A member of the RNA family "mir-29 microRNA precursor family" from Muraenolepis orangiensis, 69 nucleotides long. NCBI's taxonomy places the organism under Eukaryota, Eumetazoa, Euteleosteomorpha, Ctenosquamata, Muraenolepis. From the family's description: This family represents the microRNA (miRNA) precursors mir-29. A reference for the family is Ambros (2001), "microRNAs: tiny regulators with great potential", Cell. Its family is annotated with RISC complex and gene silencing by miRNA in the Gene Ontology.

RNA sequence: GGCUGACCGUUUUCUUCUGGUGUUUAGAGUUCACUUGUCAUGUCUAGCACCAUUUGAAAUCGGUUACAA
Numbered sequence: 001g002g003c004u005g006a007c008c009g010u011u012u013u014c015u016u017c018u019g020g021u022g023u024u025u026a027g028a029g030u031u032c033a034c035u036u037g038u039c040a041u042g043u044c045u046a047g048c049a050c051c052a053u054u055u056g057a058a059a060u061c062g063g064u065u066a067c068a069a
Stems, first nucleotide, its partner, number of pairs: 004066001005064001007063003011059004018052005025046004